[Rfam]
Shown here is a 181-nucleotide sequence from Paenibacillus albiflavus, a member of the family "c-di-AMP riboswitch aptamer (ydaO/yuaA leader)". The organism belongs to Paenibacillus, within Bacteria.
RNA sequence: UUGUGCCAUAAACCGAAACUUCACUUAGAAGUGCGGGGGAUGAUUUUCAUGAUAGAUGAACUUCAAUGGAUGUGUGAGAUUCCUAGAUUCAUUUAUCUGGGGUGAAGCAUGUAAGACAUGCAGGGCAAACUCCUAAGCCCGAACCCGACAACUAACCUCGUAGGUUACUAGAAAGGGAGAG
Numbered sequence: 001u002u003g004u005g006c007c008a009u010a011a012a013c014c015g016a017a018a019c020u021u022c023a024c025u026u027a028g029a030a031g032u033g034c035g036g037g038g039g040a041u042g043a044u045u046u047u048c049a050u051g052a053u054a055g056a057u058g059a060a061c062u063u064c065a066a067u068g069g070a071u072g073u074g075u076g077a078g079a080u081u082c083c084u085a086g087a088u089u090c091a092u093u094u095a096u097c098u099g100g101g102g103u104g105a106a107g108c109a110u111g112u113a114a115g116a117c118a119u120g121c122a123g124g125g126c127a128a129a130c131u132c133c134u135a136a137g138c139c140c141g142a143a144c145c146c147g148a149c150a151a152c153u154a155a156c157c158u159c160g161u162a163g164g165u166u167a168c169u170a171g172a173a174a175g176g177g178a179g180a181g
Base pairs, nucleotide, nucleotide: 011166012165013164014163018032019031020030021029022028033161034160035159036158037157038156042098100146101145102144108120109119110118111117123140124139125138126137
Dot-bracket structure: ..........((((...(((((.....)))))((((((...(.......................................................).(((.....((((.....))))..((((..........))))...))).........)))))).))))...............